Rfam assigns this 69-nucleotide RNA from Amycolatopsis saalfeldensis to the family "ASpks TB sRNA". The family has 77 seed sequences and 9,052 matches in Rfam 15.1. The family's consensus secondary structure is taken from published work. By type it is an antisense RNA. The source organism's lineage runs through Bacteria, Bacillati, Actinomycetota, Pseudonocardiales and Amycolatopsis.

RNA sequence: CUUCACCGAGCCGAACAGCAGCGGGUUCUCCCGGUCCUGCCCGUAGGUCGCGAGCAGCGCCUGGGCCUC
Numbered sequence: 001c002u003u004c005a006c007c008g009a010g011c012c013g014a015a016c017a018g019c020a021g022c023g024g025g026u027u028c029u030c031c032c033g034g035u036c037c038u039g040c041c042c043g044u045a046g047g048u049c050g051c052g053a054g055c056a057g058c059g060c061c062u063g064g065g066c067c068u069c
Base pairs, nucleotide, nucleotide: 014026016024028065029064030063032059033058037054038053041050043048